[Rfam]
Rfam assigns this 501-nucleotide part of an RNA from Halorutilus salinus to the family "Archaeal small subunit ribosomal RNA". A reference for the family is Yusupov et al. (2001), "Crystal structure of the ribosome at 5.5 A resolution", Science. Gene Ontology terms of the family: structural constituent of ribosome and ribosome. The source organism's lineage runs through Archaea, Methanobacteriati, Methanobacteriota, Halobacteria and Halorutilus. Pairs were carried over by alignment from the consensus structure, which is taken from published work. Its Rfam clan is "SSU clan".

RNA sequence: ACUCCGGUUGAUCCUGCCGGAGGCCAUUGCUAUUGGGAUCCGACUAAGCCAUGCGAGUCGAGAGUCAUUUGGACUCGGCGAACUGCUCAGUAACACGUGGCCAAACUACCCUGUGGAGAGGAAUAACCUCGGGAAACUGAGGAUAAGACCUCAUAGGUGCCCGACGCUGGAAUGCGCGGGCACCCAAACGUUCCGACGCCACAGGACGUGGCUGCGUCCGAUUAGGUUGACGGUGGGGUAAAGGCCCACCGUGCCAGUAAUCGGUACGGGUUGUGAGAGCAAGAGCCCGGAGAUGGACUCUGAGACACGAGUCCAGGCCCUACGGGGCGCAGCAGGCGCGAAACCUUUACACUGUACGAGAGUGCGAUAAGGGGAUCCCAAGUGCCCGCGCCUAGCGUGGGCUUUUCCGAACCGUAAAAUGGUUCAGGAAUAAGGGCUGGGAAAGACCGGUGCCAGCCGCCGCGGUAACACCGGCAGCUCAAGUGAUGGCCGAUUUUAUUG
Numbered sequence: 001a002c003u004c005c006g007g008u009u010g011a012u013c014c015u016g017c018c019g020g021a022g023g024c025c026a027u028u029g030c031u032a033u034u035g036g037g038a039u040c041c042g043a044c045u046a047a048g049c050c051a052u053g054c055g056a057g058u059c060g061a062g063a064g065u066c067a068u069u070u071g072g073a074c075u076c077g078g079c080g081a082a083c084u085g086c087u088c089a090g091u092a093a094c095a096c097g098u099g100g101c102c103a104a105a106c107u108a109c110c111c112u113g114u115g116g117a118g119a120g121g122a123a124u125a126a127c128c129u130c131g132g133g134a135a136a137c138u139g140a141g142g143a144u145a146a147g148a149c150c151u152c153a154u155a156g157g158u159g160c161c162c163g164a165c166g167c168u169g170g171a172a173u174g175c176g177c178g179g180g181c182a183c184c185c186a187a188a189c190g191u192u193c194c195g196a197c198g199c200c201a202c203a204g205g206a207c208g209u210g211g212c213u214g215c216g217u218c219c220g221a222u223u224a225g226g227u228u229g230a231c232g233g234u235g236g237g238g239u240a241a242a243g244g245c246c247c248a249c250c251g252u253g254c255c256a257g258u259a260a261u262c263g264g265u266a267c268g269g270g271u272u273g274u275g276a277g278a279g280c281a282a283g284a285g286c287c288c289g290g291a292g293a294u295g296g297a298c299u300c301u302g303a304g305a306c307a308c309g310a311g312u313c314c315a316g317g318c319c320c321u322a323c324g325g326g327g328c329g330c331a332g333c334a335g336g337c338g339c340g341a342a343a344c345c346u347u348u349a350c351a352c353u354g355u356a357c358g359a360g361a362g363u364g365c366g367a368u369a370a371g372g373g374g375a376u377c378c379c380a381a382g383u384g385c386c387c388g389c390g391c392c393u394a395g396c397g398u399g400g401g402c403u404u405u406u407c408c409g410a411a412c413c414g415u416a417a418a419a420u421g422g423u424u425c426a427g428g429a430a431u432a433a434g435g436g437c438u439g440g441g442a443a444a445g446a447c448c449g450g451u452g453c454c455a456g457c458c459g460c461c462g463c464g465g466u467a468a469c470a471c472c473g474g475c476a477g478c479u480c481a482a483g484u485g486a487u488g489g490c491c492g493a494u495u496u497u498a499u500u501g
Stems, first nucleotide, its partner, number of pairs: 004020005022491010033381009042339001048337003052334003057079003062076005086292003095217008105209002110205007118152004127142006157183007166175002190197002218264003225255003230252008267289004271282004294315006317328004345371001347370003353366005384402008407427001409425005434480006447474004456463002